mir-1788 microRNA precursor family: a 77-nucleotide RNA from Denticeps clupeoides. Pairs were carried over by alignment from the consensus structure, which was predicted with RNAalifold. The match comes from Rfam's covariance-model search (82 bits).
RNA sequence: CGGUUUUCGGGGCUUGUUUUAAGUUGCCUGCGCGCUGUUUAAAAGACUCAGGCAGCUAAAGCAAGUCUGGGAGGCCG
Numbered sequence: 001c002g003g004u005u006u007u008c009g010g011g012g013c014u015u016g017u018u019u020u021a022a023g024u025u026g027c028c029u030g031c032g033c034g035c036u037g038u039u040u041a042a043a044a045g046a047c048u049c050a051g052g053c054a055g056c057u058a059a060a061g062c063a064a065g066u067c068u069g070g071g072a073g074g075c076c077g
Base pairs, nucleotide, nucleotide: 003075004074006072007071008070010068011067012066013065014064015063016062017061018060019059020058022057023056024055025054026053027052028051029050030049032047